[Rfam]
Nucleotides: 182
Stems, first nucleotide, its partner, number of pairs: 001008002037056006058074007103135008115126004138175006145167006
Number, partner (000 for none) and nucleotide at each position: 001008a002007c003000a004000u005000u006000u007002g008001u009000u010000g011000a012000a013000a014000a015000u016000a017000a018000a019000g020000g021000g022000u023000g024000u025000u026000u027000a028000a029000u030000c031000u032000g033000u034000u035000c036000u037056u038055a039054u040053c041052a042051g043000c044000u045000u046000a047000a048000u049000a050000u051042c052041u053040g054039a055038u056037a057000c058074a059073c060072u061071c062070c063069c064068c065000a066000u067000a068064g069063g070062g071061g072060a073059g074058u075000c076000a077000g078000u079000a080000u081000a082000u083000g084000a085000a086000c087000c088000u089000g090000a091000u092000u093000u094000u095000u096000g097000g098000g099000a100000c101000u102000g103135g104134g105133c106132g107131g108130a109129g110128u111000c112000u113000c114000u115126g116125g117124g118123g119000c120000u121000c122000g123118c124117u125116c126115c127000u128110g129109c130108u131107c132106c133105g134104c135103c136000g137000c138175g139174g140173g141172u142171c143170a144000g145167c146166c147165u148164g149163g150162c151000a152000u153000g154000g155000c156000a157000g158000u159000g160000c161000c162150g163149c164148u165147g166146g167145g168000a169000u170143u171142g172141g173140c174139c175138c176000a177000a178000c179000a180000a181000g182000u

This 182-nucleotide sequence from Melipona bicolor belongs to the Rfam family "U2 spliceosomal RNA".
About the family: U2 is a small nuclear RNA (snRNA) component of the spliceosome (involved in pre-mRNA splicing). Complementary binding between U2 snRNA (in an area lying towards the 5' end but 3' to hairpin I) and the branchpoint sequence (BPS) of the intron results the bulging out of an unpaired adenosine, on the BPS, which initiates a nucleophilic attack at the intronic 5' splice site, thus starting the first of two transesterification reactions that mediate splicing.
Rfam 15.1 lists 71,512 matches to the family in 2,642 species.
The base pairs follow the family's consensus structure, which is taken from published work.
The organism belongs to Melipona, within Eukaryota.